The record is a 224-nucleotide RNA from Actinacidiphila glaucinigra, which matches "Streptomyces RNA 1601" in Rfam.
[Rfam]
Nucleotides: 224
Base pairs, nucleotide, nucleotide: 004112005111006110007109008108009107012047013046049104050103051102052101055079057077058076059075060074061072062071081100082099083098084097086095087094114145115144116143117142118141120139121138122137123136124135152217153216154215155214156213157212158209159208160207166204167203168202169200170199171198172197173196175193176192177191178190179189
Number, partner (000 for none) and nucleotide at each position: 001000a002000u003000c004112g005111a006110c007109c008108g009107g010000c011000u012047g013046g014000a015000c016000a017000c018000c019000c020000c021000g022000u023000g024000g025000a026000c027000g028000u029000c030000a031000c032000g033000g034000a035000a036000a037000c038000g039000g040000a041000g042000c043000g044000c045000u046013u047012c048000a049104g050103c051102c052101c053000a054000c055079a056000a057077g058076u059075g060074g061072a062071g063000g064000c065000u066000c067000c068000g069000a070000u071062c072061u073000c074060c075059c076058a077057c078000c079055u080000u081100g082099c083098c084097g085000g086095c087094c088000c089000c090000u091000c092000g093000a094087g095086g096000g097084c098083g099082g100081c101052g102051g103050g104049u105000c106000a107009c108008c109007g110006g111005u112004c113000a114145g115144g116143u117142g118141c119000c120139g121138u122137g123136u124135c125000c126000c127000c128000g129000g130000a131000a132000g133000a134000g135124g136123a137122c138121g139120c140000g141118g142117u143116g144115c145114c146000c147000g148000a149000c150000g151000c152217g153216c154215c155214c156213c157212g158209c159208g160207g161000a162000a163000u164000g165000c166204c167203g168202c169200g170199g171198c172197g173196g174000u175193g176192c177191u178190c179189c180000c181000g182000g183000u184000u185000g186000u187000g188000a189179g190178g191177a192176g193175c194000a195000u196173c197172c198171g199170c200169c201000u202168g203167u204166g205000a206000c207160c208159c209158g210000u211000a212157u213156g214155g215154g216153g217152c218000g219000u220000u221000u222000u223000u224000c

Pairs were carried over by alignment from the consensus structure. The family's RNA type in Rfam is small RNA. For this family Rfam cites "Deep sequencing-based identification of small non-coding RNAs in Streptomyces coelicolor" (Vockenhuber et al., RNA Biol, 2011). Taxonomically the source falls in Actinacidiphila (Bacteria, Actinomycetota, Actinomycetes, Streptomycetaceae).